[Rfam]
RNA sequence: GACUCCCGUGCCUACUGAGCUGAUUUAGUGGUGCCUAACUAUUCACCUGGCUCAGUUCAGCAGGACAGGAG
Numbered sequence: 001g002a003c004u005c006c007c008g009u010g011c012c013u014a015c016u017g018a019g020c021u022g023a024u025u026u027a028g029u030g031g032u033g034c035c036u037a038a039c040u041a042u043u044c045a046c047c048u049g050g051c052u053c054a055g056u057u058c059a060g061c062a063g064g065a066c067a068g069g070a071g
Base pairs, nucleotide, nucleotide: 003071004070005069006068008066009065011064012063013062015060016059017058018057019056020055021054022053023052026049027048028047

The record is a 71-nucleotide sequence from Aquarana catesbeiana, which matches "mir-24 microRNA precursor family" in Rfam.
Lineage of the source: Eukaryota > Opisthokonta > Sarcopterygii > Neobatrachia > Aquarana.
Gene Ontology terms of the family: miRNA-mediated post-transcriptional gene silencing and RISC complex.
Rfam's curators write: This family represents the microRNA (miRNA) mir-24 family. miRNAs are transcribed as ~70nt precursors (modelled here) and subsequently processed by the Dicer enzyme to give a ~22nt product. In this case the mature sequence comes from the 3' arm of the precursor. The extents of the hairpin precursors are not generally known and are estimated based on hairpin prediction. The products are thought to have regulatory roles through complementarity to mRNA. The involvement of Dicer in miRNA processing suggests a relationship with the phenomenon of RNA interference. miRNAs are numbered based on the sequence of the mature RNA. miR-24 has been identified in human and mouse.
The base pairs follow the family's consensus structure, which was predicted with RNAalifold.
The literature on the family includes a 2001 paper in Science by Lagos-Quintana et al., "Identification of novel genes coding for small expressed RNAs".